The record is a 74-nucleotide RNA sequence from Desulfopila aestuarii, which matches "c-di-GMP-I-GGC riboswitch aptamer" in Rfam.
RNA sequence: ACAGACAAAGCCAAACCUGCUGAAAGGCUGGGUCGGAAAGAUACGGGUCUUAACAGAUAGCCGAGCUGCCUUGA
Number, nucleotide and partner (000 for none) at each position: 001a000002c000003a071004g070005a000006c000007a000008a000009a000010g000011c036012c035013a000014a000015a000016c031017c030018u000019g028020c027021u026022g000023a000024a000025a000026g021027g020028c019029u000030g017031g016032g000033u000034c060035g012036g011037a000038a000039a067040g066041a000042u064043a000044c063045g062046g061047g058048u057049c056050u000051u000052a000053a000054c000055a000056g049057a048058u047059a000060g034061c046062c045063g044064a042065g000066c040067u039068g000069c000070c004071u003072u000073g000074a000
Notes: Rfam 15.1 lists 1,298 matches to the family in 717 species. A search with the family's covariance model found it, with a score of 61 bits. The family's consensus secondary structure is taken from published work.